The family of this 58-nucleotide RNA sequence from Phytomonospora endophytica is "msiK RNA". Pairs were carried over by alignment from the consensus structure, which is taken from published work.

Nucleotides: 058
Stems, first nucleotide, its partner, number of pairs: 009050007026043006
Number, partner (000 for none) and nucleotide at each position: 001000g002000g003000c004000c005000g006000u007000c008000a009050c010049c011048u012047u013046u014045u015044a016000c017000u018000c019000g020000g021000a022000u023000c024000g025000u026043c027042c028041g029040g030039c031038a032000c033000g034000u035000u036000c037000c038031u039030g040029c041028c042027g043026g044015u045014g046013g047012a048011a049010g050009g051000a052000a053000a054000c055000a056000u057000c058000a